Rfam assigns this 66-nucleotide sequence from Accipiter nisus to the family "Selenocysteine insertion sequence 1". The incorporation of selenocysteine into a protein sequence is directed by an in-frame UGA codon (usually a stop codon) within the coding region of the mRNA. Selenoprotein mRNAs contain a conserved secondary structure in the 3' UTR that is required for the distinction of UGA stop from UGA selenocysteine. Rfam classes the family as a cis-regulatory element. Rfam links the family to the GO term selenocysteine incorporation.
RNA sequence: CCAGCUCCAAUGACGGUCUGUCUUCAAGCCAGCUUGCUGGUGAGGCAGACCUGAAGAUCUGGCGUG
Numbered sequence: 001c002c003a004g005c006u007c008c009a010a011u012g013a014c015g016g017u018c019u020g021u022c023u024u025c026a027a028g029c030c031a032g033c034u035u036g037c038u039g040g041u042g043a044g045g046c047a048g049a050c051c052u053g054a055a056g057a058u059c060u061g062g063c064g065u066g
Stems, first nucleotide, its partner, number of pairs: 001066001004063002015051010030039003

Overview: The literature on the family includes a 1996 paper in RNA by Walczak et al., "A novel RNA structural motif in the selenocysteine insertion element of eukaryotic selenoprotein mRNAs".